[Rfam]
RNA: S10-Clostridia ribosomal protein leader
RNA sequence: AUGCGUUGAAACGGAAGGUUGCUGACGGUUUGUCAGGUAAUUUCCGUGGAGUAUGUCCGAUUUUAAACCGGGCG
Dot-bracket structure: ..........((((.(((...(((((.....)))))....)))))))......((((((.........))))))